[Rfam]
RNA: Pseudomonas sRNA P11
RNA sequence: CCCGCCGCGACUUGGCACAACCACUGCAUUAACGUUUUCAACUGACAUAAAGCCCGACCUUCAACGACGAAGGCCAGGCUUCCCGAGAGAACGGGACAAGGACAAAGGCGUCCUCGCUAGGUAACUGGCGGGACGCC
Numbered sequence: 001c002c003c004g005c006c007g008c009g010a011c012u013u014g015g016c017a018c019a020a021c022c023a024c025u026g027c028a029u030u031a032a033c034g035u036u037u038u039c040a041a042c043u044g045a046c047a048u049a050a051a052g053c054c055c056g057a058c059c060u061u062c063a064a065c066g067a068c069g070a071a072g073g074c075c076a077g078g079c080u081u082c083c084c085g086a087g088a089g090a091a092c093g094g095g096a097c098a099a100g101g102a103c104a105a106a107g108g109c110g111u112c113c114u115c116g117c118u119a120g121g122u123a124a125c126u127g128g129c130g131g132g133a134c135g136c137c
Base pairs, nucleotide, nucleotide: 012105013104014103015027016026017025052079053078054077056075058073059072061070062069081096082095083094084093085092107137108136109135110134111133112132113131115130116129117128118127119126120125